[Rfam]
RNA sequence: AAAAAGGGCUUCUGCCGUAUGUGGCACGGGGGUGGCCACGCGCCACCCCUGCGGAAUCGACAUCAAGAGAUUUCGGAAGCACAAUUUUUGUGAAAGAGGGCUGCUGGUAACCACCUGUUCCGGCACCCCG
Numbered sequence: 001a002a003a004a005a006g007g008g009c010u011u012c013u014g015c016c017g018u019a020u021g022u023g024g025c026a027c028g029g030g031g032g033u034g035g036c037c038a039c040g041c042g043c044c045a046c047c048c049c050u051g052c053g054g055a056a057u058c059g060a061c062a063u064c065a066a067g068a069g070a071u072u073u074c075g076g077a078a079g080c081a082c083a084a085u086u087u088u089u090g091u092g093a094a095a096g097a098g099g100g101c102u103g104c105u106g107g108u109a110a111c112c113a114c115c116u117g118u119u120c121c122g123g124c125a126c127c128c129c130g
Stems, first nucleotide, its partner, number of pairs: 008080005013026005027051010052075007098128003103124005109119003